[Rfam]
RNA sequence: ACCGCUGAGCCAUCUCUCCAGCCUGUGGCAACUUUUUAAAUGAAAAAUAACACUCUUGGGCUGGAGAGAUGGCUCAGUGGU
Numbered sequence: 001a002c003c004g005c006u007g008a009g010c011c012a013u014c015u016c017u018c019c020a021g022c023c024u025g026u027g028g029c030a031a032c033u034u035u036u037u038a039a040a041u042g043a044a045a046a047a048u049a050a051c052a053c054u055c056u057u058g059g060g061c062u063g064g065a066g067a068g069a070u071g072g073c074u075c076a077g078u079g080g081u
Base pairs, nucleotide, nucleotide: 002080003079004078005077006076007075008074009073010072011071012070013069014068015067016066017065018064019063020062021061022060023059024058
RNA: mir-3473 microRNA precursor family